[Rfam]
RNA sequence: GGAUGUGAGAGCAAUCUGGCUGCGACAUCUGUCACCCCAUUGAUCGCCAGGGUUGAUUCGGCUGAUCUGACUGGCUAGGUGGGUGUCCCCUUCCUCCCACGUGCGUCCCUCCCGAAGCUGCGCGCUAGGUCGAAGAGGACGACCUUUCACGAUAGAGGAGGACUGUUCUUUGGUCAAGGGUAUACGAGUAGCUGCGCUCCCCUGCUAGAACCUCCAAACAAGCUCUCAAGGUCCAUUUGUAGGAGAACGUAGGGUAGUCAAGCUUCCAAGACUCCAGACACAUCCAAAUGAGGCGCUGCACAUGGCAGUCUGCCUUUCUUU
Numbered sequence: 001g002g003a004u005g006u007g008a009g010a011g012c013a014a015u016c017u018g019g020c021u022g023c024g025a026c027a028u029c030u031g032u033c034a035c036c037c038c039a040u041u042g043a044u045c046g047c048c049a050g051g052g053u054u055g056a057u058u059c060g061g062c063u064g065a066u067c068u069g070a071c072u073g074g075c076u077a078g079g080u081g082g083g084u085g086u087c088c089c090c091u092u093c094c095u096c097c098c099a100c101g102u103g104c105g106u107c108c109c110u111c112c113c114g115a116a117g118c119u120g121c122g123c124g125c126u127a128g129g130u131c132g133a134a135g136a137g138g139a140c141g142a143c144c145u146u147u148c149a150c151g152a153u154a155g156a157g158g159a160g161g162a163c164u165g166u167u168c169u170u171u172g173g174u175c176a177a178g179g180g181u182a183u184a185c186g187a188g189u190a191g192c193u194g195c196g197c198u199c200c201c202c203u204g205c206u207a208g209a210a211c212c213u214c215c216a217a218a219c220a221a222g223c224u225c226u227c228a229a230g231g232u233c234c235a236u237u238u239g240u241a242g243g244a245g246a247a248c249g250u251a252g253g254g255u256a257g258u259c260a261a262g263c264u265u266c267c268a269a270g271a272c273u274c275c276a277g278a279c280a281c282a283u284c285c286a287a288a289u290g291a292g293g294c295g296c297u298g299c300a301c302a303u304g305g306c307a308g309u310c311u312g313c314c315u316u317u318c319u320u321u
Stems, first nucleotide, its partner, number of pairs: 001098002014092001018090002024087010035074002038069002042067004046062003106161002108158004112129002115126001117125002130152003137148003191263003197257002200254006212245004218240005286321003290316005295309005
Rfam assigns this 321-nucleotide RNA sequence from Sciurus carolinensis to the family "7SK RNA". It scores 327 bits against the family's covariance model. On this family, see Blencowe, Curr Biol 2002: "Transcription: surprising role for an elusive small nuclear RNA". The source organism's lineage runs through Eukaryota, Amniota, Theria, Rodentia and Sciurus. It is annotated as a non-coding RNA gene. Rfam describes the family as follows. 7SK was discovered as an abundant small nuclear RNA in the mid-70s but a possible function has only recently been suggested. Two independent studies have found that 7SK RNA binds the CDK9/cyclin T complex (known as elongation factor P-TEFb). Clan: 7SK clan.